[Rfam]
RNA sequence: ACGCCUGCAGUCAGUAACAAGGAUUCAUCCUGUUGUUUCUGUGCUGGCUGACAGGAAAUCAGUGUUACUGGCUGCAAGUGU
Numbered sequence: 001a002c003g004c005c006u007g008c009a010g011u012c013a014g015u016a017a018c019a020a021g022g023a024u025u026c027a028u029c030c031u032g033u034u035g036u037u038u039c040u041g042u043g044c045u046g047g048c049u050g051a052c053a054g055g056a057a058a059u060c061a062g063u064g065u066u067a068c069u070g071g072c073u074g075c076a077a078g079u080g081u
Stems, first nucleotide, its partner, number of pairs: 011071009022060004029055007038047002
Dot-bracket structure: ..........(((((((((..((((...(((((((..((......)).))))))).))))..)))))))))..........
The family of this 81-nucleotide RNA sequence from Salarias fasciatus is "mir-459 microRNA precursor family".